[Rfam]
Nucleotides: 035
Base pairs, nucleotide, nucleotide: 002021003020004019005018010034011033012032
Number, partner (000 for none) and nucleotide at each position: 001000a002021u003020a004019g005018c006000g007000g008000a009000u010034g011033c012032c013000g014000a015000a016000a017000a018005g019004c020003u021002a022000u023000a024000a025000a026000a027000g028000a029000g030000u031000a032012g033011g034010c035000u
Rfam assigns this 35-nucleotide sequence to the family "DUF805b RNA".
By type it is a cis-regulatory element.